The record is a 212-nucleotide RNA from Pseudorhodobacter sp. E13, which matches "permuted transfer-messenger RNA" in Rfam. A search with the family's covariance model found it, with a score of 136 bits.
[Rfam]
Nucleotides: 212
Base pairs, nucleotide, nucleotide: 001134002133003132004131005130014122015121016120025112026111029109030108031107035051036050037049038048039047052094053093054092055091056090057089058088135150136149137148138147
Number, partner (000 for none) and nucleotide at each position: 001134g002133g003132c004131g005130a006000u007000a008000a009000a010000c011000g012000c013000a014122c015121c016120u017000g018000u019000a020000a021000u022000a023000a024000a025112c026111g027000g028000c029109u030108c031107g032000g033000a034000c035051c036050c037049g038048g039047g040000g041000g042000c043000g044000g045000u046000a047039c048038c049037c050036g051035g052094c053093g054092a055091c056090u057089c058088c059000a060000c061000c062000a063000u064000u065000c066000c067000a068000c069000c070000c071000g072000c073000u074000c075000a076000u077000u078000u079000c080000g081000g082000g083000g084000g085000u086000u087000c088058g089057g090056g091055g092054u093053c094052g095000a096000a097000a098000u099000a100000g101000g102000a103000u104000c105000g106000a107031c108030g109029a110000a111026c112025g113000u114000c115000u116000a117000a118000a119000g120016a121015g122014g123000c124000c125000a126000g127000c128000u129000u130005u131004c132003g133002c134001u135150c136149g137148g138147u139000g140000a141000g142000g143000u144000a145000c146000c147138a148137c149136c150135g151000u152000u153000a154000u155000c156000g157000g158000u159000c160000c161000g162000a163000a164000a165000c166000g167000u168000a169000c170000a171000g172000u173000u174000g175000c176000a177000a178000a179000u180000g181000a182000c183000a184000a185000c186000c187000g188000u189000g190000c191000u192000c193000c194000g195000a196000u197000g198000g199000c200000a201000a202000u203000g204000g205000c206000c207000g208000c209000g210000u211000a212000a

Pairs were carried over by alignment from the consensus structure, which is taken from published work.